[Rfam]
Small nucleolar RNA SNORD72: an 83-nucleotide sequence from Chordeiles acutipennis. It is annotated as a C/D-box small nucleolar RNA. The base pairs follow the family's consensus structure. From the family's description: snoRNA HBII-240 belongs to the CD family of snoRNAs. It is the human orthologue of the mouse MBII-240 and is predicted to guide 2'O-ribose methylation of the large 28S rRNA at residue U4590.
Nucleotides: 083
Stems, first nucleotide, its partner, number of pairs: 002082001004080002007077002
Number, partner (000 for none) and nucleotide at each position: 001000a002082g003000c004080u005079u006000g007077u008076c009000a010000a011000u012000a013000a014000u015000g016000u017000u018000u019000c020000u021000u022000a023000u024000a025000a026000a027000a028000a029000a030000a031000a032000u033000g034000u035000c036000u037000g038000a039000a040000c041000a042000u043000a044000u045000g046000g047000a048000c049000u050000c051000c052000a053000u054000a055000g056000u057000g058000a059000u060000u061000u062000u063000g064000g065000u066000g067000c068000a069000u070000u071000a072000c073000u074000g075000a076008g077007a078000g079005a080004a081000u082002c083000u